RNA sequence: GACCAUGAAAACAGUUCUUAUCGUCGUGGGAUCGCGCAUGGGCAGGGUGUAGUAAGCACCCGGCGAAAGCUCCCAUGCGCGAAACACAGGCUCCCUCGGGGGCCUUUUUUAUUUCCAGCA
Numbered sequence: 001g002a003c004c005a006u007g008a009a010a011a012c013a014g015u016u017c018u019u020a021u022c023g024u025c026g027u028g029g030g031a032u033c034g035c036g037c038a039u040g041g042g043c044a045g046g047g048u049g050u051a052g053u054a055a056g057c058a059c060c061c062g063g064c065g066a067a068a069g070c071u072c073c074c075a076u077g078c079g080c081g082a083a084a085c086a087c088a089g090g091c092u093c094c095c096u097c098g099g100g101g102g103c104c105u106u107u108u109u110u111a112u113u114u115c116c117a118g119c120a
Stems, first nucleotide, its partner, number of pairs: 029116003033081010045061006063070002086106001088105007

Rhizobiales sRNA Atu_C8: a 120-nucleotide RNA sequence from Phyllobacterium endophyticum. The organism belongs to Phyllobacterium, within Bacteria. A search with the family's covariance model found it, with a score of 108 bits.